[Rfam]
RNA: TPP riboswitch aptamer (THI element)
Organism: Neobacillus bataviensis
RNA sequence: UGUAUCUACUAGGGGUGCCCUGUUAUCAGGCUGAGAGAAAACGUUAUGUUUUUAACCCUUUGGACCUGAUCUGGGUAAUACCAGCGUAGGAAAGUAGUCGAGCGUACUG
Numbered sequence: 001u002g003u004a005u006c007u008a009c010u011a012g013g014g015g016u017g018c019c020c021u022g023u024u025a026u027c028a029g030g031c032u033g034a035g036a037g038a039a040a041a042c043g044u045u046a047u048g049u050u051u052u053u054a055a056c057c058c059u060u061u062g063g064a065c066c067u068g069a070u071c072u073g074g075g076u077a078a079u080a081c082c083a084g085c086g087u088a089g090g091a092a093a094g095u096a097g098u099c100g101a102g103c104g105u106a107c108u109g
Stems, first nucleotide, its partner, number of pairs: 006097005011059004017031003038052005065090004071084004